[Rfam]
RNA sequence: AUGCCACAGGAUGAAGUGAGCGGGCCUAACAAGCCCUGGAAAGUCCCCGGGGCCCCCUCUGCGUAGCGAUGCGCCCACGGAGACGUGGACGGGCCGGCUCUCCCCGCCGCCUUCUGUGGUGGGGGGCUGAGACGUGUGUGGAGCCAAGGGAGCCGGCUCUGGGUCAAAUGGCCGAAAUUGUCUCACAGUUAUUCACUUGGUCCAUGAUGACUGGACUAACAGAACGGGGCUUACACUCCUGUGGCA
Numbered sequence: 001a002u003g004c005c006a007c008a009g010g011a012u013g014a015a016g017u018g019a020g021c022g023g024g025c026c027u028a029a030c031a032a033g034c035c036c037u038g039g040a041a042a043g044u045c046c047c048c049g050g051g052g053c054c055c056c057c058u059c060u061g062c063g064u065a066g067c068g069a070u071g072c073g074c075c076c077a078c079g080g081a082g083a084c085g086u087g088g089a090c091g092g093g094c095c096g097g098c099u100c101u102c103c104c105c106g107c108c109g110c111c112u113u114c115u116g117u118g119g120u121g122g123g124g125g126g127c128u129g130a131g132a133c134g135u136g137u138g139u140g141g142a143g144c145c146a147a148g149g150g151a152g153c154c155g156g157c158u159c160u161g162g163g164u165c166a167a168a169u170g171g172c173c174g175a176a177a178u179u180g181u182c183u184c185a186c187a188g189u190u191a192u193u194c195a196c197u198u199g200g201u202c203c204a205u206g207a208u209g210a211c212u213g214g215a216c217u218a219a220c221a222g223a224a225c226g227g228g229g230c231u232u233a234c235a236c237u238c239c240u241g242u243g244g245c246a
Stems, first nucleotide, its partner, number of pairs: 002246010014198006022036004041232003045229004062073004075088005102161001106157004111152005125145003134139001200216005
RNA: RNase MRP